[Rfam]
RNA sequence: UGUAAAACAAUAAGAAACCACACGUUGCUCGACACGCUUUUAGGGUGCCUUUUAAAAGGGUUUAAAAGUGGGAGUAAUGGCGGAAUAAC
Numbered sequence: 001u002g003u004a005a006a007a008c009a010a011u012a013a014g015a016a017a018c019c020a021c022a023c024g025u026u027g028c029u030c031g032a033c034a035c036g037c038u039u040u041u042a043g044g045g046u047g048c049c050u051u052u053u054a055a056a057a058g059g060g061u062u063u064a065a066a067a068g069u070g071g072g073a074g075u076a077a078u079g080g081c082g083g084a085a086u087a088a089c
Base pairs, nucleotide, nucleotide: 023079024078025077026076027075028074029073030072035070036069037068038067039066040065041064042063047061048060049059050058051057

Rfam assigns this 89-nucleotide RNA from Cysteiniphilum litorale to the family "t44 RNA". Rfam describes the family as follows. This family consists of a number of bacterial RNA genes of between 135 and 170 bases in length. By type it is a small RNA. A search with the family's covariance model found it, with a score of 56 bits.